Bacterial large subunit ribosomal RNA: a 78-nucleotide part of an RNA from Acidiferrobacter sp. SPIII_3. The match comes from Rfam's covariance-model search (2802 bits). NCBI's taxonomy places the organism under Bacteria, Gammaproteobacteria, Acidiferrobacterales, Acidiferrobacteraceae, Acidiferrobacter.
RNA sequence: AGUGGAAGUCCCGUGCCUCAUGCGCUCCUUCGGGGAGUCCAUGAGGCACGGGACGACCGCGUACCUUUUGUAUAAUGG
Numbered sequence: 001a002g003u004g005g006a007a008g009u010c011c012c013g014u015g016c017c018u019c020a021u022g023c024g025c026u027c028c029u030u031c032g033g034g035g036a037g038u039c040c041a042u043g044a045g046g047c048a049c050g051g052g053a054c055g056a057c058c059g060c061g062u063a064c065c066u067u068u069u070g071u072a073u074a075a076u077g078g
Stems, first nucleotide, its partner, number of pairs: 002060004008054015064077001066075001